[Rfam]
RNA sequence: GGGUCAAUGAUGAGAGCUCAUAUUGUCCCAAAGAGAGAUGAUGACCUCAAAAUCAUUCUCAAUAAGAUUAUGCUGAGUCCC
Numbered sequence: 001g002g003g004u005c006a007a008u009g010a011u012g013a014g015a016g017c018u019c020a021u022a023u024u025g026u027c028c029c030a031a032a033g034a035g036a037g038a039u040g041a042u043g044a045c046c047u048c049a050a051a052a053u054c055a056u057u058c059u060c061a062a063u064a065a066g067a068u069u070a071u072g073c074u075g076a077g078u079c080c081c
Base pairs, nucleotide, nucleotide: 001081002080003079005075006074008072009071
The family of this 81-nucleotide sequence from Odobenus rosmarus is "Small nucleolar RNA SNORD115".
Gene Ontology terms of the family: nucleolus and RNA processing.